[Rfam]
RNA sequence: UUGGCUUCAUUUUUCUUGAAUCUUUAUACAAGUUUGGCUGAUUGAUGAAUUGAUCUUAAUUGGCAUUGUGUGAAAGUGAAGCCAGAUUAAUGUUCCCCUCGCUAUCCACUGCAGUAUUUUCAGUGUUGUAUUUGGACGUUGGGGAAUAACAAUU
Numbered sequence: 001u002u003g004g005c006u007u008c009a010u011u012u013u014u015c016u017u018g019a020a021u022c023u024u025u026a027u028a029c030a031a032g033u034u035u036g037g038c039u040g041a042u043u044g045a046u047g048a049a050u051u052g053a054u055c056u057u058a059a060u061u062g063g064c065a066u067u068g069u070g071u072g073a074a075a076g077u078g079a080a081g082c083c084a085g086a087u088u089a090a091u092g093u094u095c096c097c098c099u100c101g102c103u104a105u106c107c108a109c110u111g112c113a114g115u116a117u118u119u120u121c122a123g124u125g126u127u128g129u130a131u132u133u134g135g136a137c138g139u140u141g142g143g144g145a146a147u148a149a150c151a152a153u154u
Stems, first nucleotide, its partner, number of pairs: 001085005008078006016070001019067002027065001029063001092147007100138002105136004114126003
This 154-nucleotide sequence from Coptis chinensis belongs to the Rfam family "Small nucleolar RNA snoR136". Gene Ontology terms of the family: RNA processing and nucleolus. Taxonomically the source falls in Coptis (Eukaryota, Streptophytina, Euphyllophyta, Ranunculaceae).